Shown here is a 272-nucleotide RNA sequence from Chinchilla lanigera, a member of the family "Mason-Pfizer monkey virus packaging signal". Pairs were carried over by alignment from the consensus structure, which was predicted with PFOLD. Rfam links the family to the GO term viral genome packaging. Rfam's curators write: This family represents a group of sequences that are related to the Mason-Pfizer monkey virus (MPMV) packaging signal. The match comes from Rfam's covariance-model search (104 bits).

RNA sequence: UGGCGCCCAAUGUGGGGCUCGAGCACGGGGGAUCCAGUGACGGACGCUGUUCAAGAGCCCGGCAAAAUGAAGUGAAAGAAAGAGGAUAAGAUAGCGUGGGAACCUGCUACGCUUUCUAGACCUCGGUAAGUGAACAGCGAUUAUGGGACAAGAAAUGAGUCAGCAUGAAAUGUUUGCUGAGGGCUUAGGAAAAGCCUUAAAGGCAUGAGGAGUAAAGGUUAAAAUUAAGCAAUUGUGUCAGUAUUUUGAUUUCAUUAAGCAAAUCUGUCCUU
Number, nucleotide and partner (000 for none) at each position: 001u000002g000003g000004c000005g000006c031007c030008c029009a000010a000011u000012g026013u025014g024015g000016g000017g000018c000019u000020c000021g000022a000023g000024c014025a013026c012027g000028g000029g008030g007031g006032a000033u000034c000035c049036a048037g047038u046039g000040a000041c000042g000043g000044a000045c000046g038047c037048u036049g035050u000051u000052c000053a000054a000055g000056a000057g000058c000059c000060c000061g000062g000063c000064a000065a000066a000067a000068u000069g000070a000071a000072g000073u000074g000075a000076a000077a000078g000079a000080a000081a000082g124083a123084g122085g121086a000087u000088a000089a000090g116091a115092u000093a000094g000095c111096g110097u109098g108099g107100g000101a000102a000103c000104c000105u000106g000107c099108u098109a097110c096111g095112c000113u000114u000115u091116c090117u000118a000119g000120a000121c085122c084123u083124c082125g000126g000127u000128a000129a000130g000131u150132g149133a000134a000135c147136a000137g000138c145139g144140a000141u000142u000143a000144u139145g138146g000147g135148a000149c132150a131151a000152g000153a000154a000155a000156u199157g198158a197159g195160u194161c000162a000163g000164c000165a000166u000167g000168a000169a000170a000171u000172g000173u000174u000175u000176g000177c000178u000179g000180a000181g000182g000183g000184c000185u000186u000187a000188g000189g000190a000191a000192a000193a000194g160195c159196c000197u158198u157199a156200a000201a000202g000203g000204c000205a000206u248207g247208a246209g245210g244211a000212g242213u241214a000215a000216a234217g233218g000219u231220u000221a000222a000223a000224a000225u000226u000227a000228a000229g000230c000231a219232a000233u217234u216235g000236u000237g000238u000239c000240a000241g213242u212243a000244u210245u209246u208247u207248g206249a000250u000251u000252u000253c000254a000255u000256u000257a272258a271259g270260c000261a268262a000263a000264u000265c000266u000267g000268u261269c000270c259271u258272u257